[Rfam]
RNA sequence: GAGCUGCAGCUGCAGCUGCAGCUGCAGCUGCAGCUGCAGCUGCAGCCAGCUGCAGUUGUAGCUGCAGUUGCAGCUGCAGCUGCAGCUGCAGCUGUAGCUGCAGCUGCAGCUGCAGCUGCAGCUGCAGCUGCAGCUGCAGCUGCAGCUGCAGCUGCAAUUGCAGCCAGUUGCAGCUGCAGUUGCAGUUGCAGUUGCAGUUGCAGUUGCAGUUGCAGUUGCAGUUGCAGUUGCAGUUGCAGUUGUAGUUGCAGUUGCAG
Numbered sequence: 001g002a003g004c005u006g007c008a009g010c011u012g013c014a015g016c017u018g019c020a021g022c023u024g025c026a027g028c029u030g031c032a033g034c035u036g037c038a039g040c041u042g043c044a045g046c047c048a049g050c051u052g053c054a055g056u057u058g059u060a061g062c063u064g065c066a067g068u069u070g071c072a073g074c075u076g077c078a079g080c081u082g083c084a085g086c087u088g089c090a091g092c093u094g095u096a097g098c099u100g101c102a103g104c105u106g107c108a109g110c111u112g113c114a115g116c117u118g119c120a121g122c123u124g125c126a127g128c129u130g131c132a133g134c135u136g137c138a139g140c141u142g143c144a145g146c147u148g149c150a151g152c153u154g155c156a157a158u159u160g161c162a163g164c165c166a167g168u169u170g171c172a173g174c175u176g177c178a179g180u181u182g183c184a185g186u187u188g189c190a191g192u193u194g195c196a197g198u199u200g201c202a203g204u205u206g207c208a209g210u211u212g213c214a215g216u217u218g219c220a221g222u223u224g225c226a227g228u229u230g231c232a233g234u235u236g237c238a239g240u241u242g243u244a245g246u247u248g249c250a251g252u253u254g255c256a257g
Base pairs, nucleotide, nucleotide: 003252004251005250006249007248009246010245011244014241015240016239017238018219019218020217021216022215023214024213025212028209029208030207031206032205033204034203049062050061051060052059053058063102064101065100066099067098071094072093073092075090076089077088078087079086103198104197106195107194108193109192110191111190112189113188115186116185117184118183119182120181122179123178124177125176127174128173129172130171131170133140134139145168146167151164152163153162154161155160224231225230

Notes: Rfam assigns this 257-nucleotide RNA sequence from Megalops atlanticus to the family "isrG Hfq binding RNA". NCBI's taxonomy places the organism under Eukaryota, Vertebrata, Teleostomi, Neopterygii, Megalops. The family has 5 seed sequences and 24 matches in Rfam 15.1. The match comes from Rfam's covariance-model search (114 bits). The base pairs follow the family's consensus structure, which was predicted with RNAalifold.